[Rfam]
RNA sequence: CGAGUCGACUGGGCGGUCGCGUCGGCCUCUGUGAGGUCGCCGAGGAACGUCCGGGCUCCACAGGGCAGGGUGGUUGCUAACGGCAACCCGGGGCGACCCGCGGGAAAGUGCCACAGAAAGCAAACCGCCUCGCCCGACGGCUUCGGCCGGCGGGCGCGGUAAGGGUGAAACGGUGGGGUAAGAGCCCACCAGCACCCCGGGUGACCGGGGUGGCUCGGUAAACCCCACCCGGAGCAAGGCCAAAAGGGUCUCCGCCGCGAGACGGUGACCUGCGCAGGCGUUUGAGGGCGGCCCGCCCGAGCCUGCGGGUGGGCCGCUUGAACCUGCCGGCGACGGCAGGUCUAGAUGGAUGGCCGCCCUCCCGUGCUCCGGCGCGGGGGACAGAACCCGGCGUACAGGUCGACUCGUCCA
Numbered sequence: 001c002g003a004g005u006c007g008a009c010u011g012g013g014c015g016g017u018c019g020c021g022u023c024g025g026c027c028u029c030u031g032u033g034a035g036g037u038c039g040c041c042g043a044g045g046a047a048c049g050u051c052c053g054g055g056c057u058c059c060a061c062a063g064g065g066c067a068g069g070g071u072g073g074u075u076g077c078u079a080a081c082g083g084c085a086a087c088c089c090g091g092g093g094c095g096a097c098c099c100g101c102g103g104g105a106a107a108g109u110g111c112c113a114c115a116g117a118a119a120g121c122a123a124a125c126c127g128c129c130u131c132g133c134c135c136g137a138c139g140g141c142u143u144c145g146g147c148c149g150g151c152g153g154g155c156g157c158g159g160u161a162a163g164g165g166u167g168a169a170a171c172g173g174u175g176g177g178g179u180a181a182g183a184g185c186c187c188a189c190c191a192g193c194a195c196c197c198c199g200g201g202u203g204a205c206c207g208g209g210g211u212g213g214c215u216c217g218g219u220a221a222a223c224c225c226c227a228c229c230c231g232g233a234g235c236a237a238g239g240c241c242a243a244a245a246g247g248g249u250c251u252c253c254g255c256c257g258c259g260a261g262a263c264g265g266u267g268a269c270c271u272g273c274g275c276a277g278g279c280g281u282u283u284g285a286g287g288g289c290g291g292c293c294c295g296c297c298c299g300a301g302c303c304u305g306c307g308g309g310u311g312g313g314c315c316g317c318u319u320g321a322a323c324c325u326g327c328c329g330g331c332g333a334c335g336g337c338a339g340g341u342c343u344a345g346a347u348g349g350a351u352g353g354c355c356g357c358c359c360u361c362c363c364g365u366g367c368u369c370c371g372g373c374g375c376g377g378g379g380g381a382c383a384g385a386a387c388c389c390g391g392c393g394u395a396c397a398g399g400u401c402g403a404c405u406c407g408u409c410c411a
Stems, first nucleotide, its partner, number of pairs: 001407010011396001012358007020042002023039006047394003051391005056234004063294004068230005073087005088102001089100004103225002108223002110219003125164002127160003131156005172190006192214001193212008238315004274306006286298004322341008
The record is a 411-nucleotide sequence from Rugosimonospora africana, which matches "Bacterial RNase P class A" in Rfam. Lineage of the source: Bacteria > Bacillati > Actinomycetota > Micromonosporales > Rugosimonospora. Rfam classes the family as a ribozyme. Its family is annotated with ribonuclease P activity, tRNA processing and dimeric ribonuclease P complex in the Gene Ontology. The base pairs follow the family's consensus structure, which is taken from published work.